RNA sequence: GUACCGUGAGGCGAGCACAGUGCAAAUUAUUCUUUCAACUUUCGCUAAAGAAUACCUUGUGCUCGCCCCUUUAUACACGUCAUCCGCCAUUUUUUUUUUUAAAGUAGGGUUUCUUUUGU
Numbered sequence: 001g002u003a004c005c006g007u008g009a010g011g012c013g014a015g016c017a018c019a020g021u022g023c024a025a026a027u028u029a030u031u032c033u034u035u036c037a038a039c040u041u042u043c044g045c046u047a048a049a050g051a052a053u054a055c056c057u058u059g060u061g062c063u064c065g066c067c068c069c070u071u072u073a074u075a076c077a078c079g080u081c082a083u084c085c086g087c088c089a090u091u092u093u094u095u096u097u098u099u100u101a102a103a104g105u106a107g108g109g110u111u112u113c114u115u116u117u118g119u
Base pairs, nucleotide, nucleotide: 003080004079010067011066012065013064014063015062016061017060018059019058028054029053030052031051032050033049034048035047100118101117102116103115104114